RNA sequence: GGGCUGCCUGCGCCGAAUCCGGGCUUCCCGAAGGGAGUCAGGAACCGGGGACCCACCAAGUUCCACCGGGGUGAAUCGGGCCGUGUUCCCGGCCCGUAGGGCAGCCUUCCGUUCCGCCCGAACCCGACAGCUAACCCGGUAGGCGGUCCACGGAAGGAGAU
Numbered sequence: 001g002g003g004c005u006g007c008c009u010g011c012g013c014c015g016a017a018u019c020c021g022g023g024c025u026u027c028c029c030g031a032a033g034g035g036a037g038u039c040a041g042g043a044a045c046c047g048g049g050g051a052c053c054c055a056c057c058a059a060g061u062u063c064c065a066c067c068g069g070g071g072u073g074a075a076u077c078g079g080g081c082c083g084u085g086u087u088c089c090c091g092g093c094c095c096g097u098a099g100g101g102c103a104g105c106c107u108u109c110c111g112u113u114c115c116g117c118c119c120g121a122a123c124c125c126g127a128c129a130g131c132u133a134a135c136c137c138g139g140u141a142g143g144c145g146g147u148c149c150a151c152g153g154a155a156g157g158a159g160a161u
Stems, first nucleotide, its partner, number of pairs: 011145004018043003044140006054068001069125003077096006099119004